[Rfam]
RNA sequence: GGAAAGUUGAGGGGUUCAUUCUUUAGUACGAGAGGACCAUGAAUGACGAACCGCUGGUGUUCCGGUUAUUGUGUCAGCAGUAGCGCCGGGUAGCUAAGUUCGGACUAGAUAAGCGCUGAAAGCAUCUAAGCGCCAAGCUAUUCCCAAGAUAAACUUUCCCUUGAACUUCGGUUCACGAAGGGUCCUGGUAGACCACCAGGUUGAUAGGAUGGAUGUGUAAGUGCAGCAAUGUAUUGAGCUAACCAUUACUAAUUACCCUAGAG
Numbered sequence: 001g002g003a004a005a006g007u008u009g010a011g012g013g014g015u016u017c018a019u020u021c022u023u024u025a026g027u028a029c030g031a032g033a034g035g036a037c038c039a040u041g042a043a044u045g046a047c048g049a050a051c052c053g054c055u056g057g058u059g060u061u062c063c064g065g066u067u068a069u070u071g072u073g074u075c076a077g078c079a080g081u082a083g084c085g086c087c088g089g090g091u092a093g094c095u096a097a098g099u100u101c102g103g104a105c106u107a108g109a110u111a112a113g114c115g116c117u118g119a120a121a122g123c124a125u126c127u128a129a130g131c132g133c134c135a136a137g138c139u140a141u142u143c144c145c146a147a148g149a150u151a152a153a154c155u156u157u158c159c160c161u162u163g164a165a166c167u168u169c170g171g172u173u174c175a176c177g178a179a180g181g182g183u184c185c186u187g188g189u190a191g192a193c194c195a196c197c198a199g200g201u202u203g204a205u206a207g208g209a210u211g212g213a214u215g216u217g218u219a220a221g222u223g224c225a226g227c228a229a230u231g232u233a234u235u236g237a238g239c240u241a242a243c244c245a246u247u248a249c250u251a252a253u254u255a256c257c258c259u260a261g262a263g
Base pairs, nucleotide, nucleotide: 001159002158003157004156005155006154007153008152011145012144013143014142017045018044019043020042021041023039047102048101049100050099051098055096056095057094062089063088064087065086066085067082068081069080070079071078072077106140107139108138113133114132115131116130117129162175163174164173180258181257182256183255184200185199186198187197188196205251206250207249208247209246210245211244212243215239221234222233223232224231225230
Shown here is a 263-nucleotide part of an RNA from Pelagicoccus mobilis, a member of the family "Bacterial large subunit ribosomal RNA".